[Rfam]
RNA sequence: AAGUUAUGAUUGACAGUGUUCAAUAUAACUU
Numbered sequence: 001a002a003g004u005u006a007u008g009a010u011u012g013a014c015a016g017u018g019u020u021c022a023a024u025a026u027a028a029c030u031u
Stems, first nucleotide, its partner, number of pairs: 001031007009024005014018001
The record is a 31-nucleotide RNA from Muntiacus reevesi, which matches "Iron response element II" in Rfam. The match comes from Rfam's covariance-model search (32 bits). From the family's description: IRE, TFRC, SLC40A1, SDHB, SLC11A2, CDC42BPA, ACO2, ALAS2_H.SAPIENS, CDC14A, EPAS1, ALAS2, qoxD, Hao1, NDUFS1, transferrin, Aconitate.